[Rfam]
RNA sequence: GACGCUGUAAGAAUAUGUUUGAUAUUUAGUUGGUUUUCUAAUAAAACAACCUAAUAUCAAACAUAUCAGACAGAGGC
Numbered sequence: 001g002a003c004g005c006u007g008u009a010a011g012a013a014u015a016u017g018u019u020u021g022a023u024a025u026u027u028a029g030u031u032g033g034u035u036u037u038c039u040a041a042u043a044a045a046a047c048a049a050c051c052u053a054a055u056a057u058c059a060a061a062c063a064u065a066u067c068a069g070a071c072a073g074a075g076g077c
Stems, first nucleotide, its partner, number of pairs: 005073004011067001013066014029050004